[Rfam]
Nucleotides: 060
Base pairs, nucleotide, nucleotide: 015043016042017041019039020038021037022036023035028059029058030057031056032055
Number, partner (000 for none) and nucleotide at each position: 001000g002000g003000g004000g005000a006000a007000c008000g009000a010000g011000a012000g013000a014000g015043g016042g017041g018000c019039u020038u021037g022036g023035g024000c025000a026000g027000u028059g029058a030057g031056c032055c033000a034000c035023c036022c037021u038020a039019a040000c041017c042016c043015c044000a045000a046000g047000g048000a049000a050000a051000u052000a053000g054000a055032g056031g057030c058029u059028c060000a

A member of the RNA family "Ma3 gene ribosomal frameshift signal" from Mus musculus, 60 nucleotides long. The family's RNA type in Rfam is frameshift element. The literature on the family includes a 2006 paper in J Biol Chem by Wills et al., "A functional -1 ribosomal frameshift signal in the human paraneoplastic Ma3 gene". The base pairs follow the family's consensus structure, which is taken from published work. Rfam links the family to the GO term translational frameshifting.